RNA sequence: AAGAAAGUGACUGCUGCCCCGCACAGGGGCGAAGCUAAUAGACCAAUAACAAUCAAGUUUCACAGAAGCCGAAGCGCAUCAGAUGGUUCAACAGACCCCA
Numbered sequence: 001a002a003g004a005a006a007g008u009g010a011c012u013g014c015u016g017c018c019c020c021g022c023a024c025a026g027g028g029g030c031g032a033a034g035c036u037a038a039u040a041g042a043c044c045a046a047u048a049a050c051a052a053u054c055a056a057g058u059u060u061c062a063c064a065g066a067a068g069c070c071g072a073a074g075c076g077c078a079u080c081a082g083a084u085g086g087u088u089c090a091a092c093a094g095a096c097c098c099c100a
Stems, first nucleotide, its partner, number of pairs: 011074002014071001015031006058067003

About this RNA:
Shown here is a 100-nucleotide sequence from Caballeronia glathei, a member of the family "Burkholderia sRNA Bp1_Cand684_SIPHT". It is annotated as a small RNA. Lineage of the source: Bacteria > Pseudomonadota > Betaproteobacteria > Burkholderiaceae > Caballeronia. On this family, see Khoo et al., BMC Genomics 2012: "Computational discovery and RT-PCR validation of novel Burkholderia conserved and Burkholderia pseudomallei unique sRNAs".